[Rfam]
RNA sequence: GGGUCAAGUGAUGAGGAAUAAACUGCAACAAUAUGAUGGAGCUAAGCUCCUCUGAUUCUUAGUAUUUAAGUCUCUGAUGACACC
Numbered sequence: 001g002g003g004u005c006a007a008g009u010g011a012u013g014a015g016g017a018a019u020a021a022a023c024u025g026c027a028a029c030a031a032u033a034u035g036a037u038g039g040a041g042c043u044a045a046g047c048u049c050c051u052c053u054g055a056u057u058c059u060u061a062g063u064a065u066u067u068a069a070g071u072c073u074c075u076g077a078u079g080a081c082a083c084c
Stems, first nucleotide, its partner, number of pairs: 001084002004082001005079002038050004
Dot-bracket structure: ((.(((...............................((((.....))))...........................))..)))
Rfam assigns this 84-nucleotide sequence from Hordeum vulgare to the family "Small nucleolar RNA Z199".
The family's consensus secondary structure was predicted with PFOLD.
It scores 84 bits against the family's covariance model.
Rfam describes the family as follows. snoZ199 is a C/D box small nucleolar RNA, which acts as a methylation guide RNA for sites on 18S and 25S rRNA. Rice snoZ199 is reported to be homologous to Arabidopsis snoR13.
For this family Rfam cites "The high diversity of snoRNAs in plants: identification and comparative study of 120 snoRNA genes from Oryza sativa" (Chen et al., Nucleic Acids Res, 2003).
By type it is a C/D-box small nucleolar RNA.